[Rfam]
RNA sequence: CCCGGCAUUCUCCUGCCGGUACCCUAGGAGGCAUGCUUCACCGGUGCAUUCGGUGUUGGUAUGAAGCCCUUUCGACAAAGUACCAAAUUCUGCGCAAGCAGAAGGGGUGGAAAUCGUGAGACAGACACCCUCCGGGAAGCCUUAUCCGGGUGAGGGC
Numbered sequence: 001c002c003c004g005g006c007a008u009u010c011u012c013c014u015g016c017c018g019g020u021a022c023c024c025u026a027g028g029a030g031g032c033a034u035g036c037u038u039c040a041c042c043g044g045u046g047c048a049u050u051c052g053g054u055g056u057u058g059g060u061a062u063g064a065a066g067c068c069c070u071u072u073c074g075a076c077a078a079a080g081u082a083c084c085a086a087a088u089u090c091u092g093c094g095c096a097a098g099c100a101g102a103a104g105g106g107g108u109g110g111a112a113a114u115c116g117u118g119a120g121a122c123a124g125a126c127a128c129c130c131u132c133c134g135g136g137a138a139g140c141c142u143u144a145u146c147c148g149g150g151u152g153a154g155g156g157c
Base pairs, nucleotide, nucleotide: 002019003018004017005016006015007014027072028071029070030069031068032063033062034061035060036059037058039055040054041053042052043051088103089102090101091100092099093098104130105129106128114121115120132150133149135147136146137145
RNA: Group II catalytic intron D1-D4-7
Organism: Desulfobacula toluolica